[Rfam]
RNA sequence: UGCUCCGGUGGGUCGGGCCGCCUUCCCAAGGAACGAGGAGAGGGAAAGAACCCUCACCGAACCCCACCCCUUCCCGCCCCGUCGGGCACUCACCCUCAGGAGUGAAUGACGGCGAAAUCGCUGGUUGAAGGGCGGGUUGUCGGUUCUAUCCUCAGCGCGAUCGGCAUAUGACCGCAGACAUGCGUCGGCCCCCGCCGGGAGUGGAGUCCCGUAGGCGGGGGCCUGACCACCAAGGAACUAGAGGCUUCCUG
Numbered sequence: 001u002g003c004u005c006c007g008g009u010g011g012g013u014c015g016g017g018c019c020g021c022c023u024u025c026c027c028a029a030g031g032a033a034c035g036a037g038g039a040g041a042g043g044g045a046a047a048g049a050a051c052c053c054u055c056a057c058c059g060a061a062c063c064c065c066a067c068c069c070c071u072u073c074c075c076g077c078c079c080c081g082u083c084g085g086g087c088a089c090u091c092a093c094c095c096u097c098a099g100g101a102g103u104g105a106a107u108g109a110c111g112g113c114g115a116a117a118u119c120g121c122u123g124g125u126u127g128a129a130g131g132g133c134g135g136g137u138u139g140u141c142g143g144u145u146c147u148a149u150c151c152u153c154a155g156c157g158c159g160a161u162c163g164g165c166a167u168a169u170g171a172c173c174g175c176a177g178a179c180a181u182g183c184g185u186c187g188g189c190c191c192c193c194g195c196c197g198g199g200a201g202u203g204g205a206g207u208c209c210c211g212u213a214g215g216c217g218g219g220g221g222c223c224u225g226a227c228c229a230c231c232a233a234g235g236a237a238c239u240a241g242a243g244g245c246u247u248c249c250u251g
Stems, first nucleotide, its partner, number of pairs: 007231004016078003020074001090105004095100001120156005187223005193217003197210004234249004